RNA sequence: AUCCAAACCAAACAACUAUUCUCAAGCUUUUUCAAGGUUCUUUACCUACCACAUCUAUAUUCAUCAUGUCUCCUUGCACCUGCAACUGCUGCUCUGGCGAGUGCAACUCCUGCUCUUGCUCCAGCUGCAAGGUAUGUCAUUGAUUGCU
Number, nucleotide and partner (000 for none) at each position: 001a000002u000003c000004c000005a000006a000007a000008c000009c000010a000011a000012a000013c000014a000015a000016c000017u000018a000019u000020u000021c000022u000023c000024a000025a000026g000027c000028u000029u000030u000031u000032u000033c000034a000035a000036g000037g000038u000039u000040c000041u000042u000043u000044a000045c000046c000047u000048a000049c000050c000051a000052c000053a000054u000055c000056u000057a000058u000059a000060u000061u000062c000063a000064u000065c000066a000067u000068g000069u000070c000071u000072c000073c000074u000075u099076g098077c097078a000079c000080c000081u000082g092083c091084a090085a000086c000087u000088g000089c000090u084091g083092c082093u000094c000095u000096g000097g077098c076099g075100a000101g000102u000103g128104c127105a126106a000107c000108u000109c000110c000111u000112g119113c118114u000115c000116u000117u000118g113119c112120u000121c000122c000123a000124g000125c000126u105127g104128c103129a000130a000131g000132g000133u000134a000135u000136g000137u000138c000139a000140u000141u000142g000143a000144u000145u000146g000147c000148u000

Rfam assigns this 148-nucleotide sequence from Penicillium vulpinum to the family "A. fumigatus sRNA Afu_254". Pairs were carried over by alignment from the consensus structure, which was predicted with WAR. The match comes from Rfam's covariance-model search (82 bits). By type it is a small RNA.